[Rfam]
RNA: Glycine riboswitch aptamer
RNA sequence: CGCACCGUGACGGGAGAGUUCGGAUAUCGCGCGAUUUGCAUGAUAUCCGGCGCCGAAGGAGCAAUGCCUCAUAAACACUCUCAGGCAGAUGGACCGUCACGGAUAG
Numbered sequence: 001c002g003c004a005c006c007g008u009g010a011c012g013g014g015a016g017a018g019u020u021c022g023g024a025u026a027u028c029g030c031g032c033g034a035u036u037u038g039c040a041u042g043a044u045a046u047c048c049g050g051c052g053c054c055g056a057a058g059g060a061g062c063a064a065u066g067c068c069u070c071a072u073a074a075a076c077a078c079u080c081u082c083a084g085g086c087a088g089a090u091g092g093a094c095c096g097u098c099a100c101g102g103a104u105a106g
Stems, first nucleotide, its partner, number of pairs: 006101008020050010052086003055082002059080003065073002